[Rfam]
RNA sequence: GUGAAAUAUUUAUUUAAAGCUUAUAUAUAUUUGGAAUAUGGCCAAAAGUUUCUACACCAAACCUUAAAUUUGGUACUAUAAGUAAAAGUAAAUUGGGA
Numbered sequence: 001g002u003g004a005a006a007u008a009u010u011u012a013u014u015u016a017a018a019g020c021u022u023a024u025a026u027a028u029a030u031u032u033g034g035a036a037u038a039u040g041g042c043c044a045a046a047a048g049u050u051u052c053u054a055c056a057c058c059a060a061a062c063c064u065u066a067a068a069u070u071u072g073g074u075a076c077u078a079u080a081a082g083u084a085a086a087a088g089u090a091a092a093u094u095g096g097g098a
Stems, first nucleotide, its partner, number of pairs: 019083007030046005056074006

A member of the RNA family "Purine riboswitch aptamer" from Cetobacterium somerae, 98 nucleotides long.
The match comes from Rfam's covariance-model search (65 bits).